[Rfam]
RNA sequence: UGAUCUGCGGCGGGAGAGUUCUGCCGGAAGUACAGGCAGGCGCCGUAGGAGCAAAUCCUCCCCAGGAAUCUCGCAGGCCCCUGUACCGCCGCGGCGAG
Number, nucleotide and partner (000 for none) at each position: 001u000002g000003a000004u000005c000006u093007g092008c091009g090010g089011c088012g087013g086014g000015a000016g000017a000018g000019u000020u040021c039022u038023g037024c036025c035026g000027g000028a000029a000030g000031u000032a000033c000034a000035g025036g024037c023038a022039g021040g020041c000042g078043c077044c076045g074046u073047a000048g000049g072050a071051g070052c000053a000054a000055a000056u064057c000058c000059u000060c000061c000062c000063c000064a056065g000066g000067a000068a000069u000070c051071u050072c049073g046074c045075a000076g044077g043078c042079c000080c000081c000082u000083g000084u000085a000086c013087c012088g011089c010090c009091g008092c007093g006094g000095c000096g000097a000098g000

Background: Shown here is a 98-nucleotide sequence from Pseudarthrobacter sp., a member of the family "Glycine riboswitch aptamer". On this family, see Mandal et al., Science 2004: "A glycine-dependent riboswitch that uses cooperative binding to control gene expression".